[Rfam]
Description: This 143-nucleotide RNA sequence from Macleaya cordata belongs to the Rfam family "small nucleolar RNA snoR134". Lineage of the source: Eukaryota > Embryophyta > Tracheophyta > Mesangiospermae > Macleaya. Rfam links the family to the GO terms RNA processing and nucleolus. It is annotated as an H/ACA-box small nucleolar RNA. Pairs were carried over by alignment from the consensus structure, which was predicted with RNAalifold. On this family, see Chen and Wu, Nucleic Acids Res 2009: "Mining small RNA sequencing data: a new approach to identify small nucleolar RNAs in Arabidopsis".
RNA sequence: UUGCACGUUGCACCCCGGGCUUCUCUGAAUUUAUUCAAUGACGAAGAAAGCCCCAAUGCUCGUGCUAAAGUGGCGCCGUUUAGUGUUGCAGUUUAGCUUUGAUUUUCAACAGCUUAUCUGUGUCAAAAUAACAGGCUAAAUCU
Numbered sequence: 001u002u003g004c005a006c007g008u009u010g011c012a013c014c015c016c017g018g019g020c021u022u023c024u025c026u027g028a029a030u031u032u033a034u035u036c037a038a039u040g041a042c043g044a045a046g047a048a049a050g051c052c053c054c055a056a057u058g059c060u061c062g063u064g065c066u067a068a069a070g071u072g073g074c075g076c077c078g079u080u081u082a083g084u085g086u087u088g089c090a091g092u093u094u095a096g097c098u099u100u101g102a103u104u105u106u107c108a109a110c111a112g113c114u115u116a117u118c119u120g121u122g123u124c125a126a127a128a129u130a131a132c133a134g135g136c137u138a139a140a141u142c143u
Stems, first nucleotide, its partner, number of pairs: 003065005010059002017053005022047002024044002075136003078132003084125002087122005096113003
Dot-bracket structure: ..(((((..((.....(((((((((.................)).)).)))))....)).))))).........((((((...((.(((((....(((............)))....))))).))....))).))).......